[Rfam]
RNA sequence: GCCGCCGCUUGUACCCGCUGCUGGCGCCCGGCGCCGGUCCCAAUCGCUUGGCGCUGUCAGCGGGUGCAAGCGGCGGCUA
Numbered sequence: 001g002c003c004g005c006c007g008c009u010u011g012u013a014c015c016c017g018c019u020g021c022u023g024g025c026g027c028c029c030g031g032c033g034c035c036g037g038u039c040c041c042a043a044u045c046g047c048u049u050g051g052c053g054c055u056g057u058c059a060g061c062g063g064g065u066g067c068a069a070g071c072g073g074c075g076g077c078u079a
Stems, first nucleotide, its partner, number of pairs: 004074017022056007
The family of this 79-nucleotide sequence from Cnephaeus nilssonii is "mir-9198 microRNA precursor family".
It scores 94 bits against the family's covariance model.
The family's consensus secondary structure was predicted with RNAalifold.
Gene Ontology terms of the family: miRNA-mediated post-transcriptional gene silencing and RISC complex.
The source organism's lineage runs through Eukaryota, Metazoa, Bilateria, Yangochiroptera and Cnephaeus.